Source information: Rfam assigns this 367-nucleotide sequence from Alkalimonas amylolytica to the family "Bacterial RNase P class A". Its family is annotated with dimeric ribonuclease P complex, ribonuclease P activity and tRNA processing in the Gene Ontology. The family is grouped with related families in Rfam's "RNaseP clan".

RNA sequence: CGAGUUGGCCAGGGCAAUCGCUGCUUGCAUUUGCAAGGGGAGGAAAGUCCGGGCUCCACAGGGCAGAGUGCCAGGUAACGCCUGGGCGGCGUGAGCCGACGACCAGUGCAACAGAGAGCAGACCGCCGAUGGCCCGCUUGCGGGAUCAGGUAAGGGUGAAAGGGUGCGGUAAGAGCGCACCGCGCGACUGGCAACAGUUCGUGGCACGGUAAACUCCACUCGGAGCAAGACCAAAUAGGCCCCCAAUGGUACGGCCCGUACUGGGGGCGGGUAGGUUGCUUGAGGUGCAUGGUGACAUGCAUCCUAGAGGAAUGGUUGCCACCUUGGAAACAAGGCACAGAACCCGGCUUAUUGGCCAACUCACUUC
Number, nucleotide and partner (000 for none) at each position: 001c000002g362003a361004g360005u359006u358007g357008g356009c355010c354011a352012g000013g320014g319015c318016a317017a316018u315019c314020g000021c040022u039023g000024c037025u036026u035027g034028c033029a000030u000031u000032u000033g028034c027035a026036a025037g024038g000039g022040g021041a000042g000043g000044a000045a350046a349047g348048u000049c347050c346051g345052g344053g343054c225055u224056c223057c222058a000059c000060a000061g257062g256063g255064c254065a000066g221067a220068g219069u218070g217071c085072c084073a083074g082075g081076u000077a000078a000079c000080g000081c075082c074083u073084g072085g071086g100087c098088g097089g096090c095091g000092u000093g000094a000095g090096c089097c088098g087099a000100c086101g216102a215103c000104c000105a000106g214107u213108g210109c209110a000111a000112c000113a000114g000115a000116g000117a000118g000119c000120a000121g000122a000123c155124c154125g151126c150127c149128g000129a000130u148131g147132g146133c000134c144135c143136g000137c000138u000139u000140g000141c000142g000143g135144g134145a000146u132147c131148a130149g127150g126151u125152a000153a000154g124155g123156g000157u000158g000159a000160a000161a000162g000163g181164g180165u179166g178167c177168g176169g000170u000171a000172a000173g000174a000175g000176c168177g167178c166179a165180c164181c163182g205183c203184g202185c201186g200187a199188c197189u196190g195191g000192c000193a000194a000195c190196a189197g188198u000199u187200c186201g185202u184203g183204g000205c182206a000207c000208g000209g109210u108211a000212a000213a107214c106215u102216c101217c070218a069219c068220u067221c066222g057223g056224a055225g054226c000227a000228a000229g277230a276231c275232c274233a000234a000235a000236u000237a000238g000239g268240c267241c266242c265243c264244c263245a000246a000247u000248g262249g261250u260251a259252c258253g000254g064255c063256c062257c061258g252259u251260a250261c249262u248263g244264g243265g242266g241267g240268c239269g000270g000271g000272u000273a000274g232275g231276u230277u229278g000279c000280u000281u000282g000283a000284g303285g302286u301287g300288c299289a298290u297291g296292g000293u000294g000295a000296c291297a290298u289299g288300c287301a286302u285303c284304c000305u000306a000307g000308a000309g000310g000311a000312a000313u000314g019315g018316u017317u016318g015319c014320c013321a000322c000323c000324u000325u000326g000327g000328a000329a000330a000331c000332a000333a000334g000335g000336c000337a000338c000339a000340g000341a000342a000343c053344c052345c051346g050347g049348c047349u046350u045351a000352u011353u000354g010355g009356c008357c007358a006359a005360c004361u003362c002363a000364c000365u000366u000367c000